A member of the RNA family "Nuclear RNase P" from Mortierella polycephala, 282 nucleotides long. Its Rfam clan is "RNaseP clan".
[Rfam]
RNA sequence: GGCGGGCCGAAUAGCGUUUGCUUGGAAACAUUACGGCUGUGACGUCCUUUUGGAUCGAUCCAGCAAAUGACUGCAAGCGGGUAAAGUCCGCGUAAGUGCGCAAUAUCGUAUUCCCUAGUGGGGACGCCAGUGAGUUGCUGGCGAGAUUCUUUGGCUACCAGCAAUCUGUCUCUUGUCACAAAGAGAUUGAAAGCGGCCUCUGGCACACAGCUUCUAUAAGUCCAAUACGCUGUAGGUCCCUCGCAAGAGGGGCUGAAACUCAAUGCGGAUUAUUGGCCUACC
Numbered sequence: 001g002g003c004g005g006g007c008c009g010a011a012u013a014g015c016g017u018u019u020g021c022u023u024g025g026a027a028a029c030a031u032u033a034c035g036g037c038u039g040u041g042a043c044g045u046c047c048u049u050u051u052g053g054a055u056c057g058a059u060c061c062a063g064c065a066a067a068u069g070a071c072u073g074c075a076a077g078c079g080g081g082u083a084a085a086g087u088c089c090g091c092g093u094a095a096g097u098g099c100g101c102a103a104u105a106u107c108g109u110a111u112u113c114c115c116u117a118g119u120g121g122g123g124a125c126g127c128c129a130g131u132g133a134g135u136u137g138c139u140g141g142c143g144a145g146a147u148u149c150u151u152u153g154g155c156u157a158c159c160a161g162c163a164a165u166c167u168g169u170c171u172c173u174u175g176u177c178a179c180a181a182a183g184a185g186a187u188u189g190a191a192a193g194c195g196g197c198c199u200c201u202g203g204c205a206c207a208c209a210g211c212u213u214c215u216a217u218a219a220g221u222c223c224a225a226u227a228c229g230c231u232g233u234a235g236g237u238c239c240c241u242c243g244c245a246a247g248a249g250g251g252g253c254u255g256a257a258a259c260u261c262a263a264u265g266c267g268g269a270u271u272a273u274u275g276g277c278c279u280a281c282c
Stems, first nucleotide, its partner, number of pairs: 001282002005278003011233003020078005036064004088268005097205003101202001112124004126142006153198004169186005235254007